Shown here is a 60-nucleotide RNA sequence from Microbacterium caowuchunii, a member of the family "msiK RNA". Rfam 15.1 lists 1,374 matches to the family in 1,364 species. The family's RNA type in Rfam is cis-regulatory element.
[Rfam]
RNA sequence: CCCCGCUAUUCCAUCACUACGGAUCGUCCGGCACGUACCUGCCGGUGAAGGAGAAAACCA
Numbered sequence: 001c002c003c004c005g006c007u008a009u010u011c012c013a014u015c016a017c018u019a020c021g022g023a024u025c026g027u028c029c030g031g032c033a034c035g036u037a038c039c040u041g042c043c044g045g046u047g048a049a050g051g052a053g054a055a056a057a058c059c060a
Base pairs, nucleotide, nucleotide: 010052011051012050014048015047016046028045029044030043031042032041033040

Description:
The base pairs follow the family's consensus structure, which is taken from published work.